[Rfam]
RNA sequence: UAGUAGUGUGACAUGCCCGUUUGGGUCGAACUCUAAUGUUGUGUAUUUAAUUAUUAUUAAUUAUUUUUGGGUAACAGGGUGUUACACAUCC
Numbered sequence: 001u002a003g004u005a006g007u008g009u010g011a012c013a014u015g016c017c018c019g020u021u022u023g024g025g026u027c028g029a030a031c032u033c034u035a036a037u038g039u040u041g042u043g044u045a046u047u048u049a050a051u052u053a054u055u056a057u058u059a060a061u062u063a064u065u066u067u068u069g070g071g072u073a074a075c076a077g078g079g080u081g082u083u084a085c086a087c088a089u090c091c
Stems, first nucleotide, its partner, number of pairs: 003090001006087009016078002019075003
RNA: MIR2617 microRNA precursor family
Organism: Medicago truncatula